[Rfam]
RNA sequence: AGAAAAAAAUCCUCGCAAGAAAUUCUUGCGAGGUGCCUUACACAUACAUUGGUAUGUACUUAAGGCUAUGGGAGAGGAGAAACCGGAGGAAGAACUUAUGGGGAAACGUAAGCCUUCUCCGCGG
Numbered sequence: 001a002g003a004a005a006a007a008a009a010u011c012c013u014c015g016c017a018a019g020a021a022a023u024u025c026u027u028g029c030g031a032g033g034u035g036c037c038u039u040a041c042a043c044a045u046a047c048a049u050u051g052g053u054a055u056g057u058a059c060u061u062a063a064g065g066c067u068a069u070g071g072g073a074g075a076g077g078a079g080a081a082a083c084c085g086g087a088g089g090a091a092g093a094a095c096u097u098a099u100g101g102g103g104a105a106a107c108g109u110a111a112g113c114c115u116u117c118u119c120c121g122c123g124g
Stems, first nucleotide, its partner, number of pairs: 011033009034072001036070001038068001042057005084121004089117004095112004
Dot-bracket structure: ..........(((((((((.....)))))))))(.(.(...(((((......)))))..........).).)...........((((.((((..((((..........)))).))))))))...
Description: The record is a 124-nucleotide RNA sequence from Halalkalibacter hemicellulosilyticus, which matches "ylbH leader" in Rfam. Gene Ontology term of the family: regulation of gene expression. This family is a putative regulatory RNA structure that is found upstream of the ylbH gene in B. subtilis and related low GC Gram-positive bacteria. It scores 94 bits against the family's covariance model. By type it is a cis-regulatory leader. The organism belongs to Halalkalibacter hemicellulosilyticus, within Bacteria. The base pairs follow the family's consensus structure.